Description
Shown here is a 174-nucleotide RNA from Pelosinus sp. UFO1, a member of the family "Lysine riboswitch aptamer". It scores 127 bits against the family's covariance model. From the family's description: Riboswitches are metabolite binding domains within certain messenger RNAs that serve as precision sensors for their corresponding targets.

[Rfam]
RNA sequence: CUAGAAGAUAGAGGCGCGGUAUAUUAAGAAUAUGUAUCUAGAGUAGCCAGCGAUGAAAGAUACAAAAAGGAAUAACCGCCGAAGUGGAAGGGUUUGGCAAAGACCUUUUCGUUGGUUUUGUAUUGAAUAAAUACAAGACUGUCAUCCAAUUUUGGGUGGAGUGCUAUCUGCAUA
Numbered sequence: 001c002u003a004g005a006a007g008a009u010a011g012a013g014g015c016g017c018g019g020u021a022u023a024u025u026a027a028g029a030a031u032a033u034g035u036a037u038c039u040a041g042a043g044u045a046g047c048c049a050g051c052g053a054u055g056a057a058a059g060a061u062a063c064a065a066a067a068a069g070g071a072a073u074a075a076c077c078g079c080c081g082a083a084g085u086g087g088a089a090g091g092g093u094u095u096g097g098c099a100a101a102g103a104c105c106u107u108u109u110c111g112u113u114g115g116u117u118u119u120g121u122a123u124u125g126a127a128u129a130a131a132u133a134c135a136a137g138a139c140u141g142u143c144a145u146c147c148a149a150u151u152u153u154g155g156g157u158g159g160a161g162u163g164c165u166a167u168c169u170g171c172a173u174a
Base pairs, nucleotide, nucleotide: 006169007168008167009166010165011164016079017078018077019076020075023073024072025071033064034063035062036061037060038059039058083113084112085111086110087109088108089107090106091105092104093103094102114140115139116138117137118136119135120134121133122132123131124130142159143158144157145156146155147154148153